[Rfam]
RNA: Bacterial RNase P class A
Organism: Pseudooceanicola lipolyticus
RNA sequence: GCGGAGGGCCGGAUGGCCGCAGGGCCCUGGCCCUGAGGAAAGUCCGGACUCCGGGAAGCGACGGUGCCGGGUAACGCCCGGGCGGGGAGACCCGACGGAAAGCGCCACAGAGAACAGUCCGCCCCGGUUCACCCCGGGGUCAGGGUGAAACGGUGGGGUAAGAGCCCACCGCGCCGCUGGCAACAGCGGCGGCAUGGCAAGCCCCACCGGGAGCAAUGCCGAAUAGGACCCCCGCGCGGGACUGGUCCCGGAUCUCGGUCCGGGAAACCGCCGCUAGGCCUGCUUCCGCCGAGAGGGGUCGGGUUGGCAGCACGAGGCGCAUGGCGACAUGCGUCCCAGAGGAAUGGUCAUCGACGGGGGCGACCCCUGAACAGAAUCCGGCUUACAGGCUCUCCGCGCAU
Numbered sequence: 001g002c003g004g005a006g007g008g009c010c011g012g013a014u015g016g017c018c019g020c021a022g023g024g025c026c027c028u029g030g031c032c033c034u035g036a037g038g039a040a041a042g043u044c045c046g047g048a049c050u051c052c053g054g055g056a057a058g059c060g061a062c063g064g065u066g067c068c069g070g071g072u073a074a075c076g077c078c079c080g081g082g083c084g085g086g087g088a089g090a091c092c093c094g095a096c097g098g099a100a101a102g103c104g105c106c107a108c109a110g111a112g113a114a115c116a117g118u119c120c121g122c123c124c125c126g127g128u129u130c131a132c133c134c135c136g137g138g139g140u141c142a143g144g145g146u147g148a149a150a151c152g153g154u155g156g157g158g159u160a161a162g163a164g165c166c167c168a169c170c171g172c173g174c175c176g177c178u179g180g181c182a183a184c185a186g187c188g189g190c191g192g193c194a195u196g197g198c199a200a201g202c203c204c205c206a207c208c209g210g211g212a213g214c215a216a217u218g219c220c221g222a223a224u225a226g227g228a229c230c231c232c233c234g235c236g237c238g239g240g241a242c243u244g245g246u247c248c249c250g251g252a253u254c255u256c257g258g259u260c261c262g263g264g265a266a267a268c269c270g271c272c273g274c275u276a277g278g279c280c281u282g283c284u285u286c287c288g289c290c291g292a293g294a295g296g297g298g299u300c301g302g303g304u305u306g307g308c309a310g311c312a313c314g315a316g317g318c319g320c321a322u323g324g325c326g327a328c329a330u331g332c333g334u335c336c337c338a339g340a341g342g343a344a345u346g347g348u349c350a351u352c353g354a355c356g357g358g359g360g361c362g363a364c365c366c367c368u369g370a371a372c373a374g375a376a377u378c379c380g381g382c383u384u385a386c387a388g389g390c391u392c393u394c395c396g397c398g399c400a401u
Base pairs, nucleotide, nucleotide: 001397002396003395004394005393006392007391008390009389010388011386012352013351014350015349016348017347018346020035021034022033023032024031025030040384041383042382044381045380046379047378048377049213050212051211052210058287060285062209063208064207065206066205067081068080069079070078071077082096083094084093085092086091097204098203102202103201104198105197106196119144120143121140122139123138124137125136126135127134152170153169154168155167156166157165171193172191173190174189175188176187177186178185179184217309218308219307220306227300228299229298230297231296232295279293281291282290316335317334318333319332320331321330322329323328